The record is a 99-nucleotide RNA sequence from Artemisia annua, which matches "mir-399 microRNA precursor family" in Rfam. Taxonomically the source falls in Artemisia (Eukaryota, Embryophyta, eudicotyledons, Gunneridae). A reference for the family is Jones-Rhoades and Bartel (2004), "Computational Identification of Plant MicroRNAs and Their Targets, Including a Stress-Induced miRNA", Mol Cell. Pairs were carried over by alignment from the consensus structure, which was predicted with PFOLD. The family has 13 seed sequences and 2,396 matches in Rfam 15.1. Its family is annotated with RISC complex and miRNA-mediated post-transcriptional gene silencing in the Gene Ontology.

[Rfam]
RNA sequence: GGAAGAAUAACAGGGCAGUCCUCCUUUGGCAGAAAACCCGUGCACUUCUUAGAGUUUAGAGCACAUUCUGCCAAGGGAGAUUUGCCCUGCAAUUCUACA
Number, nucleotide and partner (000 for none) at each position: 001g000002g000003a000004a000005g095006a094007a093008u092009a000010a000011c089012a088013g087014g086015g085016c084017a082018g081019u000020c000021c079022u078023c077024c076025u000026u000027u073028g072029g071030c070031a069032g068033a067034a066035a000036a000037c000038c000039c000040g000041u000042g000043c000044a000045c000046u000047u000048c000049u000050u000051a000052g000053a000054g000055u000056u000057u000058a000059g000060a000061g000062c000063a000064c000065a000066u034067u033068c032069u031070g030071c029072c028073a027074a000075g000076g024077g023078a022079g021080a000081u018082u017083u000084g016085c015086c014087c013088u012089g011090c000091a000092a008093u007094u006095c005096u000097a000098c000099a000